Shown here is a 62-nucleotide RNA from Homo sapiens, a member of the family "U7 small nuclear RNA". It scores 60 bits against the family's covariance model. The family's consensus secondary structure was predicted with PFOLD. The source organism's lineage runs through Eukaryota, Deuterostomia, Euarchontoglires, Simiiformes and Homo.
RNA sequence: AAGUGUUAUAGCUCUUUUACAAUUUGUCUAGUAGGUUUUCCAGUUUUCACCAGAAAAUCCCG
Number, nucleotide and partner (000 for none) at each position: 001a000002a000003g000004u000005g000006u000007u000008a000009u000010a000011g000012c000013u000014c000015u000016u000017u000018u000019a000020c000021a000022a000023u000024u000025u000026g000027u000028c000029u000030a000031g000032u000033a000034g059035g058036u057037u056038u055039u054040c053041c000042a000043g050044u049045u000046u000047u000048c000049a044050c043051c000052a000053g040054a039055a038056a037057a036058u035059c034060c000061c000062g000